[Rfam]
RNA sequence: CUCGGAGGACGACCUCCGGACUGGACUCCGGAGGACGACCUC
Numbered sequence: 001c002u003c004g005g006a007g008g009a010c011g012a013c014c015u016c017c018g019g020a021c022u023g024g025a026c027u028c029c030g031g032a033g034g035a036c037g038a039c040c041u042c
Base pairs, nucleotide, nucleotide: 002019003018004017005016006015007014008013031042032041033040034039

Overview: Shown here is a 42-nucleotide RNA from Zizania palustris, a member of the family "Guanidine-II riboswitch aptamer (mini-ykkC)". Simpler in structure and has fewer highly conserved nucleotide positions than the ykkC-yxkD leader. It scores 33 bits against the family's covariance model. NCBI's taxonomy places the organism under Eukaryota, Streptophyta, Embryophyta, Mesangiospermae, Zizania. The family's consensus secondary structure is taken from published work.